[Rfam]
Shown here is a 70-nucleotide sequence from Oryza sativa, a member of the family "Small nucleolar RNA snoR97". Pairs were carried over by alignment from the consensus structure, which was predicted with WAR. On this family, see Marker et al., Curr Biol 2002: "Experimental RNomics: identification of 140 candidates for small non-messenger RNAs in the plant Arabidopsis thaliana".
RNA sequence: AGAUUGUGUGUUGACAUCAGCUUCGUCUCUAUUAACCGUGGGAUGGGAGUUAAAUGACAGCACGAAAUUC
Numbered sequence: 001a002g003a004u005u006g007u008g009u010g011u012u013g014a015c016a017u018c019a020g021c022u023u024c025g026u027c028u029c030u031a032u033u034a035a036c037c038g039u040g041g042g043a044u045g046g047g048a049g050u051u052a053a054a055u056g057a058c059a060g061c062a063c064g065a066a067a068u069u070c
Stems, first nucleotide, its partner, number of pairs: 007064007019051006026043004